[Rfam]
RNA sequence: AAUGCACACAAACCCUAAGGACAUUAUUGUAAUGUAUAAUGUUCUAGCUGUGUGUGCAAACAGUAAUAGCACCUUGUCGCCUUUCACCUGCUGUUGUGCUAAUGGAAGUGAAAUCAAGGUGUAACAGCA
Numbered sequence: 001a002a003u004g005c006a007c008a009c010a011a012a013c014c015c016u017a018a019g020g021a022c023a024u025u026a027u028u029g030u031a032a033u034g035u036a037u038a039a040u041g042u043u044c045u046a047g048c049u050g051u052g053u054g055u056g057c058a059a060a061c062a063g064u065a066a067u068a069g070c071a072c073c074u075u076g077u078c079g080c081c082u083u084u085c086a087c088c089u090g091c092u093g094u095u096g097u098g099c100u101a102a103u104g105g106a107a108g109u110g111a112a113a114u115c116a117a118g119g120u121g122u123a124a125c126a127g128c129a
Stems, first nucleotide, its partner, number of pairs: 003058007019044009069122007081108006090099002
This 129-nucleotide sequence from Atractosteus spatula belongs to the Rfam family "Small nucleolar RNA SNORA68". Gene Ontology terms of the family: nucleolus and RNA processing. From the family's description: U68 is a member of the H/ACA class of small nucleolar RNAs (snoRNAs) which act as guides in the the modification of uridines to pseudouridines. The match comes from Rfam's covariance-model search (78 bits). A reference for the family is Ganot et al. (1997), "The family of box ACA small nucleolar RNAs is defined by an evolutionarily conserved secondary structure and ubiquitous sequence elements essential for RNA accumulation", Genes Dev.